About this RNA:
The family of this 31-nucleotide RNA sequence from Symbiodinium natans is "Iron response element II". By type it is a cis-regulatory element. Lineage of the source: Eukaryota > Alveolata > Dinophyceae > Suessiales > Symbiodinium. IRE, TFRC, SLC40A1, SDHB, SLC11A2, CDC42BPA, ACO2, ALAS2_H.SAPIENS, CDC14A, EPAS1, ALAS2, qoxD, Hao1, NDUFS1, transferrin, Aconitate. The family's consensus secondary structure is taken from published work. On this family, see Gunshin et al., FEBS Lett 2001: "Iron-dependent regulation of the divalent metal ion transporter".
RNA sequence: AUGUCAUCAGCGUCAGGGUACGCUAUGGCAU
Dot-bracket structure: (((((((.((((((...).))))))))))))